[Rfam]
MIR6224 microRNA precursor family: a 176-nucleotide RNA from Sorghum bicolor. NCBI's taxonomy places the organism under Eukaryota, Spermatophyta, Panicoideae, Sorghinae, Sorghum.
RNA sequence: ACUCCCUCCGUCCUAGUAUAUAAGGCGUAACCACUUUUUGCUCAUGUCCUAUAAUAUAAGGCAUGCUCUCUUACAAACAUAAAUGCAAUACUACUAGUGCUGUGAGAGAGAAUUAAAUAUGUUCUUGGUCUUUAAACCAGAGGUGGUUACGCCUUAUAUACUAGGACAGAGGGAGU
Numbered sequence: 001a002c003u004c005c006c007u008c009c010g011u012c013c014u015a016g017u018a019u020a021u022a023a024g025g026c027g028u029a030a031c032c033a034c035u036u037u038u039u040g041c042u043c044a045u046g047u048c049c050u051a052u053a054a055u056a057u058a059a060g061g062c063a064u065g066c067u068c069u070c071u072u073a074c075a076a077a078c079a080u081a082a083a084u085g086c087a088a089u090a091c092u093a094c095u096a097g098u099g100c101u102g103u104g105a106g107a108g109a110g111a112a113u114u115a116a117a118u119a120u121g122u123u124c125u126u127g128g129u130c131u132u133u134a135a136a137c138c139a140g141a142g143g144u145g146g147u148u149a150c151g152c153c154u155u156a157u158a159u160a161c162u163a164g165g166a167c168a169g170a171g172g173g174a175g176u
Base pairs, nucleotide, nucleotide: 001176002175003174004173005172006171007170008169010167011166012165013164014163015162017160018159019158020157021156022155023154024153025152026151027150028149029148030147031146033144034143035142036141037140038139042135044133049128050127051126066110067109068108069107070106071105072104074102075101078099079098080097082095084093085092